Rfam assigns this 103-nucleotide RNA sequence from Actinidia chinensis to the family "Small nucleolar RNA R30/Z108". The family has 6 seed sequences and 626 matches in Rfam 15.1. By type it is a C/D-box small nucleolar RNA.

RNA sequence: ACUGAUUGCGAUGAGGACAAAAAGCUCCCUCUUCUGACUCCUAAGUUGAGGAGUAAUUGCUGGCAGAAUCGAACCUAUGACUUCAUAAGCCACCACUGAGCAA
Numbered sequence: 001a002c003u004g005a006u007u008g009c010g011a012u013g014a015g016g017a018c019a020a021a022a023a024g025c026u027c028c029c030u031c032u033u034c035u036g037a038c039u040c041c042u043a044a045g046u047u048g049a050g051g052a053g054u055a056a057u058u059g060c061u062g063g064c065a066g067a068a069u070c071g072a073a074c075c076u077a078u079g080a081c082u083u084c085a086u087a088a089g090c091c092a093c094c095a096c097u098g099a100g101c102a103a
Stems, first nucleotide, its partner, number of pairs: 006103004
Rfam links the family to the GO terms nucleolus and RNA processing. The family is grouped with related families in Rfam's "SNORD100 clan". A reference for the family is Marker et al. (2002), "Experimental RNomics. Identification of 140 Candidates for Small Non-Messenger RNAs in the Plant Arabidopsis thaliana", Curr Biol. From the family's description: snoR30 is a C/D box small nucleolar RNA which acts as a methylation guide for 18S ribosomal RNA in plants. NCBI's taxonomy places the organism under Eukaryota, Embryophyta, Magnoliopsida, Actinidia, Actinidia chinensis.